The family of this 595-nucleotide part of an RNA from Zancudomyces culisetae is "Eukaryotic large subunit ribosomal RNA".
It scores 3157 bits against the family's covariance model.
NCBI's taxonomy places the organism under Eukaryota, Fungi, Harpellomycetes, Harpellales, Zancudomyces.

Nucleotides: 595
Base pairs, nucleotide, nucleotide: 001583002582003581004580010577011576012575013574014573015572016571018569019568020567035059036058037057038056039055044049060340061339063337064336065335066334067333068332069329070328071327072326073325075318076317077316079314080313081312082311083310084183085182086181088179089178090177091176097171098170100168105166106165107164108163110161111160112159113158114157115156116155117154118153119152120151121150122149123148124147125146126145127144128143341345353562354561355560356559357558358557359556360554361553364378365377366376381417382416383415384414385413386412387411388410392404393403394402395401421548422547423546425479426478427477430476431475432472433471434470435469437468440467441466442465448459449458450457451456480498481497482496483495484494485493499503519535520534521533522532523531
Number, partner (000 for none) and nucleotide at each position: 001583u002582a003581g004580a005000a006000c007000a008000a009000u010577g011576u012575a013574g014573g015572u016571a017000a018569g019568g020567g021000a022000a023000g024000u025000c026000g027000g028000c029000a030000a031000a032000a033000u034000a035059g036058a037057u038056c039055c040000g041000u042000a043000a044049c045000u046000u047000c048000g049044g050000g051000a052000a053000a054000a055039g056038g057037a058036u059035u060340g061339g062000c063337u064336c065335u066334a067333a068332g069329g070328g071327u072326u073325g074000g075318g076317u077316g078000u079314u080313u081312c082311g083310g084183g085182u086181u087000a088179u089178a090177g091176a092000a093000a094000u095000a096000g097171c098170u099000g100168c101000c102000a103000c104000u105166c106165u107164g108163a109000a110161c111160u112159u113158u114157a115156u116155u117154u118153u119152u120151g121150g122149g123148g124147a125146u126145a127144u128143a129000u130000u131000a132000c133000u134000u135000u136000c137000g138000g139000g140000u141000u142000u143128u144127g145126u146125a147124u148123u149122u150121c151120u152119g153118g154117g155116g156115g157114u158113a159112a160111a161110g162000a163108u164107u165106g166105g167000g168100g169000a170098g171097g172000a173000g174000c175000u176091u177090c178089u179088a180000u181086g182085a183084c184000u185000u186000u187000c188000u189000a190000a191000g192000g193000u194000u195000u196000g197000g198000c199000a200000g201000g202000u203000a204000u205000u206000a207000g208000u209000a210000u211000c212000c213000u214000u215000g216000a217000a218000g219000g220000a221000a222000g223000g224000a225000g226000g227000a228000g229000a230000a231000g232000a233000a234000a235000g236000a237000a238000a239000g240000a241000g242000g243000g244000g245000u246000u247000c248000g249000c250000u251000u252000c253000u254000u255000u256000u257000u258000c259000u260000u261000u262000u263000g264000a265000c266000u267000u268000u269000u270000u271000c272000g273000g274000c275000u276000u277000u278000c279000u280000u281000u282000g283000a284000u285000c286000u287000g288000u289000a290000u291000c292000g293000g294000g295000g296000c297000u298000u299000u300000a301000g302000u303000a304000a305000u306000u307000u308000u309000a310083c311082c312081g313080g314079a315000c316077c317076a318075c319000a320000a321000u322000u323000a324000a325073c326072a327071a328070c329069c330000a331000a332068c333067u334066u335065a336064g337063a338000a339061c340060u341345g342000g343000u344000a345341c346000g347000g348000a349000c350000a351000a352000g353562g354561g355560g356559a357558a358557u359556c360554u361553g362000a363000c364378u365377g366376u367000c368000u369000a370000a371000u372000u373000a374000a375000a376366a377365c378364a379000u380000a381417g382416c383415a384414u385413u386412g387411c388410g389000a390000u391000g392404g393403c394402c395401a396000g397000a398000a399000a400000g401395u402394g403393g404392u405000g406000u407000u408000g409000a410388c411387g412386c413385a414384a415383u416382g417381u418000g419000a420000u421548u422547u423546c424000u425479g426478c427477c428000c429000a430476g431475u432472g433471c434470u435469c436000u437468g438000a439000a440467u441466g442465u443000c444000a445000a446000u447000g448459u449458g450457a451456a452000g453000a454000a455000a456451u457450u458449c459448a460000a461000c462000c463000a464000a465442g466441c467440g468437c469435g470434g471433g472432u473000a474000a475431a476430c477427g478426g479425c480498g481497g482496g483495a484494g485493u486000a487000a488000c489000u490000a491000u492000g493485a494484c495483u496482c497481u498480c499503u500000u501000a502000a503499g504000g505000u506000a507000g508000c509000c510000a511000a512000a513000u514000g515000c516000c517000u518000c519535g520534u521533c522532a523531u524000c525000u526000a527000a528000u529000u530000a531523g532522u533521g534520a535519c536000g537000c538000g539000c540000a541000u542000g543000a544000a545000u546423g547422g548421a549000u550000u551000a552000a553361c554360g555000a556359g557358a558357u559356u560355c561354c562353c563000a564000c565000u566000g567020u568019c569018c570000c571016u572015a573014u574013c575012u576011a577010c578000u579000a580004u581003c582002u583001a584000g585000c586000g587000a588000a589000a590000c591000c592000a593000c594000a595000g